[Rfam]
RNA sequence: GCCGGUCCUCGGUAGUGGCCCCCGGGCGAACAGGCCCCGGGUGCUUCGAUCGAAGACCGGC
Dot-bracket structure: (((((((.(((((...(((.((((((.........)))))).)))...))))).)))))))
The record is a 61-nucleotide RNA, which matches "Actino-pnp RNA" in Rfam. The family's RNA type in Rfam is cis-regulatory element.